[Rfam]
This 121-nucleotide sequence from Rhamnella rubrinervis belongs to the Rfam family "MIR397 microRNA precursor family". The match comes from Rfam's covariance-model search (66 bits).
RNA sequence: GACAGAAACAUAAUUGGGUGCAGCGCUGAUGAAAUUGUUUCCCAGAAUAGAAAUUAGAGAAAUAAGAGAGAGUCGAUCAGAAAUUGAAACUUCAUCAACGCUGCACUCAAUGACGUUUCUC
Numbered sequence: 001g002a003c004a005g006a007a008a009c010a011u012a013a014u015u016g017g018g019u020g021c022a023g024c025g026c027u028g029a030u031g032a033a034a035u036u037g038u039u040u041c042c043c044a045g046a047a048u049a050g051a052a053a054u055u056a057g058a059g060a061a062a063u064a065a066g067a068g069a070g071a072g073u074c075g076a077u078c079a080g081a082a083a084u085u086g087a088a089a090c091u092u093c094a095u096c097a098a099c100g101c102u103g104c105a106c107u108c109a110a111u112g113a114c115g116u117u118u119c120u121c
Stems, first nucleotide, its partner, number of pairs: 006118004011113001013111013027097002030094003